[Rfam]
RNA: mir-5928 microRNA precursor family
Organism: Haemonchus placei
RNA sequence: GGCCCAAUUUUGAAGUACAGCAGACAAGUAGGAUCAGUUGACCUUACUAAUCUACUCUACUUCAGAUUUGAGCCC
Numbered sequence: 001g002g003c004c005c006a007a008u009u010u011u012g013a014a015g016u017a018c019a020g021c022a023g024a025c026a027a028g029u030a031g032g033a034u035c036a037g038u039u040g041a042c043c044u045u046a047c048u049a050a051u052c053u054a055c056u057c058u059a060c061u062u063c064a065g066a067u068u069u070g071a072g073c074c075c
Stems, first nucleotide, its partner, number of pairs: 001074003005070003009066001011064007019056002022053002027048004032043001034041002